[Rfam]
RNA sequence: UUCCAUCUUCGGGGCAGGGUGUAAUUCCCGACCGACGGUAUUAGGUGCAUAGAUACCUAGAGUCCGUGACCCGCAGGUUCUUCCUGCGGCUGAUCUGGUGAGAGUCCAGAACCGACAGUUAAAGUCUGGAUGGGAGAAGAUGUCG
Numbered sequence: 001u002u003c004c005a006u007c008u009u010c011g012g013g014g015c016a017g018g019g020u021g022u023a024a025u026u027c028c029c030g031a032c033c034g035a036c037g038g039u040a041u042u043a044g045g046u047g048c049a050u051a052g053a054u055a056c057c058u059a060g061a062g063u064c065c066g067u068g069a070c071c072c073g074c075a076g077g078u079u080c081u082u083c084c085u086g087c088g089g090c091u092g093a094u095c096u097g098g099u100g101a102g103a104g105u106c107c108a109g110a111a112c113c114g115a116c117a118g119u120u121a122a123a124g125u126c127u128g129g130a131u132g133g134g135a136g137a138a139g140a141u142g143u144c145g
Stems, first nucleotide, its partner, number of pairs: 004142007017029003031125002033114002035067004062112002071089002094110005116128003
Rfam assigns this 145-nucleotide sequence from Halobacillus sp. BAB-2008 to the family "FMN riboswitch aptamer (RFN element)".
Rfam links the family to the GO term FMN binding.
The organism belongs to Halobacillus, within Bacteria.
The match comes from Rfam's covariance-model search (113 bits).
Pairs were carried over by alignment from the consensus structure, which is taken from published work.